Rfam assigns this 47-nucleotide RNA from Rhynchospora breviuscula to the family "Plastid-ycf3 group II-D1 intron". On this family, see Richter et al., Plant Commun 2023: "Retrograde signaling in plants: A critical review focusing on the GUN pathway and beyond". Rfam's curators write: Plastid rpl16 is a non-coding RNA (ncRNA) recognised in plastids. It was recognised in and intronic region of a ribosome rpl16 gene. It scores 57 bits against the family's covariance model. The source organism's lineage runs through Eukaryota, Streptophyta, Poales, Cyperoideae and Rhynchospora.

RNA sequence: AUCCCUUCAAUCGUGUAUCCUCGAUUGAUGCAAUCUCAGAUGCCUCA
Numbered sequence: 001a002u003c004c005c006u007u008c009a010a011u012c013g014u015g016u017a018u019c020c021u022c023g024a025u026u027g028a029u030g031c032a033a034u035c036u037c038a039g040a041u042g043c044c045u046c047a
Base pairs, nucleotide, nucleotide: 010025011024012023013022034042